Description:
Shown here is a 53-nucleotide sequence from Telmatospirillum siberiense, a member of the family "serC leader". Rfam links the family to the GO term regulation of gene expression. A reference for the family is Corbino et al. (2005), "Evidence for a second class of S-adenosylmethionine riboswitches and other regulatory RNA motifs in alpha-proteobacteria", Genome Biol. NCBI's taxonomy places the organism under Bacteria, Pseudomonadota, Alphaproteobacteria, Rhodospirillaceae, Telmatospirillum.
RNA sequence: CGCCGGGCCACGAUCCCCCAACGGAUCGCGACCCUUCUGUAAGGAGGGGUUUC
Number, nucleotide and partner (000 for none) at each position: 001c000002g000003c000004c000005g000006g000007g000008c000009c000010a000011c028012g027013a026014u025015c024016c023017c000018c000019c000020a000021a000022c000023g016024g015025a014026u013027c012028g011029c000030g000031a000032c000033c048034c047035u046036u045037c044038u043039g000040u000041a000042a000043g038044g037045a036046g035047g034048g033049g000050u000051u000052u000053c000
The pairing is the family consensus, mapped onto this sequence. This family is a putative regulatory RNA structure that is found upstream of the serC-serA operon in some alpha-proteobacteria. The final stem of the structure overlaps the ribosome binding site of the serC reading frame.